[Rfam]
RNA sequence: AACUAAGAUAGAGGUGCGGAAUUUAAGAGUAGUAUUACGGAUUUAAGCAUAACGAAGUAAUAUGAAAGGAACUUUCGCCGAAGUAAAUAGUUGAUUGCUUUAAUACUAUUUACUGGUUUUAUGUAAAAUAUGCAUAAAACUGUCACAAAAUAAUUUGUGGAGAGCUAUUUUCAAU
Numbered sequence: 001a002a003c004u005a006a007g008a009u010a011g012a013g014g015u016g017c018g019g020a021a022u023u024u025a026a027g028a029g030u031a032g033u034a035u036u037a038c039g040g041a042u043u044u045a046a047g048c049a050u051a052a053c054g055a056a057g058u059a060a061u062a063u064g065a066a067a068g069g070a071a072c073u074u075u076c077g078c079c080g081a082a083g084u085a086a087a088u089a090g091u092u093g094a095u096u097g098c099u100u101u102a103a104u105a106c107u108a109u110u111u112a113c114u115g116g117u118u119u120u121a122u123g124u125a126a127a128a129u130a131u132g133c134a135u136a137a138a139a140c141u142g143u144c145a146c147a148a149a150a151u152a153a154u155u156u157g158u159g160g161a162g163a164g165c166u167a168u169u170u171u172c173a174a175u
Base pairs, nucleotide, nucleotide: 006170007169008168009167010166011165016078017077018076019075020074021073023071024070032063033062034061035060036059037058038057082114083113084112085111086110087109088108089107090106091105115141116140117139118138119137120136121135122134123133124132125131143160144159145158146157147156148155149154

Lysine riboswitch aptamer: a 175-nucleotide RNA from Clostridium saccharobutylicum. The base pairs follow the family's consensus structure, which is taken from published work.